[Rfam]
Shown here is a 77-nucleotide sequence from Parnassius apollo, a member of the family "Mammalian CPEB3 ribozyme". Pairs were carried over by alignment from the consensus structure, which is taken from published work.

RNA sequence: AAAAACAGAAUGGGGGUCAUUGUAGAAGCGUGCUCGUCGCGACCCCUGCCAGCCCUUUUCAGGGCUGCAAUUCUACA
Numbered sequence: 001a002a003a004a005a006c007a008g009a010a011u012g013g014g015g016g017u018c019a020u021u022g023u024a025g026a027a028g029c030g031u032g033c034u035c036g037u038c039g040c041g042a043c044c045c046c047u048g049c050c051a052g053c054c055c056u057u058u059u060c061a062g063g064g065c066u067g068c069a070a071u072u073c074u075a076c077a
Stems, first nucleotide, its partner, number of pairs: 013046006021077007028040003050067007

Source information:
About the family: The mammalian CPEB3 ribozyme is a self cleaving RNA located in the second intron of the CPEB3 gene which belongs to a family of genes regulating messenger RNA polyadenylation. This ribozyme is highly conserved and found only in mammals. The CPEB3 ribozyme is structurally and biochemically related to the human hepatitis delta virus (HDV) ribozyme and the HDV ribozyme is proposed to have arisen from the human transcriptome.